[Rfam]
RNA sequence: AAUAGGAGCAUGAUAAAUAAGAUUUUUGUUCCUGUUUUUUAGCUUUUUCCUCUUGAAAAAUUUAAAUCCAACUAAAAAUGCUAAAAGUCAGAAGAAAAAAUCUGAUUUGUCGUACUCCUAUU
Numbered sequence: 001a002a003u004a005g006g007a008g009c010a011u012g013a014u015a016a017a018u019a020a021g022a023u024u025u026u027u028g029u030u031c032c033u034g035u036u037u038u039u040u041a042g043c044u045u046u047u048u049c050c051u052c053u054u055g056a057a058a059a060a061u062u063u064a065a066a067u068c069c070a071a072c073u074a075a076a077a078a079u080g081c082u083a084a085a086a087g088u089c090a091g092a093a094g095a096a097a098a099a100a101u102c103u104g105a106u107u108u109g110u111c112g113u114a115c116u117c118c119u120a121u122u
Stems, first nucleotide, its partner, number of pairs: 001122008010113009020103008029094002032091003036087004041082002045078004
RNA: MIR7504 microRNA precursor family
Organism: Gossypium raimondii